[Rfam]
RNA sequence: UGCGGUAGGGGGUUGCGACAUGGAAUUUCUAUCUUGCCUUUUACCAGACAGAACCGGUUUUGGCCCUUUAUAUGCCGCAUGCUAUUUUUUUUGGACAUAUUUAUAUCUCA
Number, nucleotide and partner (000 for none) at each position: 001u000002g000003c077004g076005g075006u074007a000008g000009g067010g066011g065012g064013u063014u062015g061016c000017g059018a058019c057020a000021u000022g000023g000024a000025a000026u000027u053028u052029c051030u050031a000032u048033c047034u046035u000036g000037c000038c000039u000040u000041u000042u000043a000044c000045c000046a034047g033048a032049c000050a030051g029052a028053a027054c000055c000056g000057g019058u018059u017060u000061u015062g014063g013064c012065c011066c010067u009068u000069u000070a000071u000072a000073u000074g006075c005076c004077g003078c000079a000080u000081g000082c000083u000084a000085u000086u000087u000088u000089u000090u000091u000092u000093g000094g000095a000096c000097a000098u000099a000100u000101u000102u110103a000104u000105a000106u000107c000108u000109c000110a102
Record summary
The family of this 110-nucleotide RNA sequence from Pneumocystis jirovecii is "U5 spliceosomal RNA". Lineage of the source: Eukaryota > Fungi > Taphrinomycotina > Pneumocystales > Pneumocystis. The family's RNA type in Rfam is spliceosomal small nuclear RNA.